[Rfam]
RNA sequence: GUGGAGACCUAGGGGUGUCCCGACAAGGGGCUGAGAGUCUGCUGGCGAGUUGGCUGAUCGGGCCGAGCGCGGCGCAGUGACCCUUCGAACCUGAUCCGGAUCAUGCCGGCGAAGGGACAGGACCGUUGCGCUCUC
Numbered sequence: 001g002u003g004g005a006g007a008c009c010u011a012g013g014g015g016u017g018u019c020c021c022g023a024c025a026a027g028g029g030g031c032u033g034a035g036a037g038u039c040u041g042c043u044g045g046c047g048a049g050u051u052g053g054c055u056g057a058u059c060g061g062g063c064c065g066a067g068c069g070c071g072g073c074g075c076a077g078u079g080a081c082c083c084u085u086c087g088a089a090c091c092u093g094a095u096c097c098g099g100a101u102c103a104u105g106c107c108g109g110c111g112a113a114g115g116g117a118c119a120g121g122a123c124c125g126u127u128g129c130g131c132u133c134u135c
Base pairs, nucleotide, nucleotide: 006123008121009120010119011084012083013082014081017031018030019029020028021027039077040076041075042074090115091114092113096109097108098107099106
Rfam assigns this 135-nucleotide RNA from Roseospira marina to the family "TPP riboswitch aptamer (THI element)".
The family's consensus secondary structure is taken from published work.
Lineage of the source: Bacteria > Pseudomonadota > Alphaproteobacteria > Rhodospirillaceae > Roseospira.